[Rfam]
RNA: mir-2807 microRNA precursor family
Organism: Bombyx mori
RNA sequence: UUAACUCAAAUUUGUAUGGAGUUGGAACAUUUGCUUACGUUUGCCGUUAGGGGCAUUGUUCCAAGUGCAUACAAGCUUGAGUUA
Numbered sequence: 001u002u003a004a005c006u007c008a009a010a011u012u013u014g015u016a017u018g019g020a021g022u023u024g025g026a027a028c029a030u031u032u033g034c035u036u037a038c039g040u041u042u043g044c045c046g047u048u049a050g051g052g053g054c055a056u057u058g059u060u061c062c063a064a065g066u067g068c069a070u071a072c073a074a075g076c077u078u079g080a081g082u083u084a
Base pairs, nucleotide, nucleotide: 008078009077011075012074013073014072015071016070018068020066022064023063024062025061026060027059028058029057034052035051036050039047040046